[Rfam]
RNA sequence: UGGCUUUGUGCUAAAUCAAACUUCUCUAACUUUGACCCAAGUUUAAAAAUUAUAAUAAAAUCUGCAAGUUCAAAUAAAUGCAAUAUCAAAAUGUAUUUCAUGGAGAAUUUGAUGAAACUAAUUUGGUGGUGUAUAUAUGUUGGUGGAUUUUUCUAUAAACUUGGUCAAAGUUAAAGAAGUUUGACUUAGGACAAAACCAA
Numbered sequence: 001u002g003g004c005u006u007u008g009u010g011c012u013a014a015a016u017c018a019a020a021c022u023u024c025u026c027u028a029a030c031u032u033u034g035a036c037c038c039a040a041g042u043u044u045a046a047a048a049a050u051u052a053u054a055a056u057a058a059a060a061u062c063u064g065c066a067a068g069u070u071c072a073a074a075u076a077a078a079u080g081c082a083a084u085a086u087c088a089a090a091a092u093g094u095a096u097u098u099c100a101u102g103g104a105g106a107a108u109u110u111g112a113u114g115a116a117a118c119u120a121a122u123u124u125g126g127u128g129g130u131g132u133a134u135a136u137a138u139g140u141u142g143g144u145g146g147a148u149u150u151u152u153c154u155a156u157a158a159a160c161u162u163g164g165u166c167a168a169a170g171u172u173a174a175a176g177a178a179g180u181u182u183g184a185c186u187u188a189g190g191a192c193a194a195a196a197c198c199a200a
Stems, first nucleotide, its partner, number of pairs: 005195005011189004016184010031169005044155002047152003053145002057141001058138001060136002063133004070126006
MIR1435 microRNA precursor family: a 200-nucleotide RNA sequence from Miscanthus lutarioriparius. It scores 102 bits against the family's covariance model. Its family is annotated with RISC complex and miRNA-mediated post-transcriptional gene silencing in the Gene Ontology.